[Rfam]
RNA: SAM riboswitch aptamer (S box leader)
Organism: Sediminibacillus albus
RNA sequence: CUCUUAUCAAGAGCAGGUGGAGGGAAACGGCCCGAUGAAGCCCGGCAACCGACUGUAAUACCAUUGUGAGAUGGGGCGUGUUAAUACGCCGCGGUUUAAUCCGCUUUAAAGCACGGUGCUAAUUCCUGCAGUAGCGAUACUGUAAGAUAAGAG
Numbered sequence: 001c002u003c004u005u006a007u008c009a010a011g012a013g014c015a016g017g018u019g020g021a022g023g024g025a026a027a028c029g030g031c032c033c034g035a036u037g038a039a040g041c042c043c044g045g046c047a048a049c050c051g052a053c054u055g056u057a058a059u060a061c062c063a064u065u066g067u068g069a070g071a072u073g074g075g076g077c078g079u080g081u082u083a084a085u086a087c088g089c090c091g092c093g094g095u096u097u098a099a100u101c102c103g104c105u106u107u108a109a110a111g112c113a114c115g116g117u118g119c120u121a122a123u124u125c126c127u128g129c130a131g132u133a134g135c136g137a138u139a140c141u142g143u144a145a146g147a148u149a150a151g152a153g
Base pairs, nucleotide, nucleotide: 001153002152003151004150005149006148007147008146013043016042017041018040022033023032024031029126030125044120045119046118047117049116050115051112054109124145129142130141131140132139133138